[Rfam]
Record summary
The record is a 169-nucleotide RNA from Mesorhabditis spiculigera, which matches "U2 spliceosomal RNA" in Rfam. The source organism's lineage runs through Eukaryota, Ecdysozoa, Chromadorea, Rhabditomorpha and Mesorhabditis. Its family is annotated with pre-mRNA branch point binding, mRNA branch site recognition and U2 snRNP in the Gene Ontology. By type it is a spliceosomal small nuclear RNA. A reference for the family is Zwieb (1997), "The uRNA database", Nucleic Acids Res. U2 is a small nuclear RNA (snRNA) component of the spliceosome (involved in pre-mRNA splicing). Complementary binding between U2 snRNA (in an area lying towards the 5' end but 3' to hairpin I) and the branchpoint sequence (BPS) of the intron results the bulging out of an unpaired adenosine, on the BPS, which initiates a nucleophilic attack at the intronic 5' splice site, thus starting the first of two transesterification reactions that mediate splicing.

RNA sequence: UUUGCUAAUAAACGUUAACAGUUCUUAUCGGCUUAAUCUCCGAUACGUACACUAUUGUGUACAACGAGAUUAAUAUAUUUUUGGAAAUGGUUCGGUUUGUAGAAGCUUGCUUCUCGCCGGACAGCGUCGUCCCGGCAUUGCACUUGCCGUCGGGAUCGGCGCACACCCC
Numbered sequence: 001u002u003u004g005c006u007a008a009u010a011a012a013c014g015u016u017a018a019c020a021g022u023u024c025u026u027a028u029c030g031g032c033u034u035a036a037u038c039u040c041c042g043a044u045a046c047g048u049a050c051a052c053u054a055u056u057g058u059g060u061a062c063a064a065c066g067a068g069a070u071u072a073a074u075a076u077a078u079u080u081u082u083g084g085a086a087a088u089g090g091u092u093c094g095g096u097u098u099g100u101a102g103a104a105g106c107u108u109g110c111u112u113c114u115c116g117c118c119g120g121a122c123a124g125c126g127u128c129g130u131c132c133c134g135g136c137a138u139u140g141c142a143c144u145u146g147c148c149g150u151c152g153g154g155a156u157c158g159g160c161g162c163a164c165a166c167c168c169c
Stems, first nucleotide, its partner, number of pairs: 026045006047062006090122007102113004124162006131154006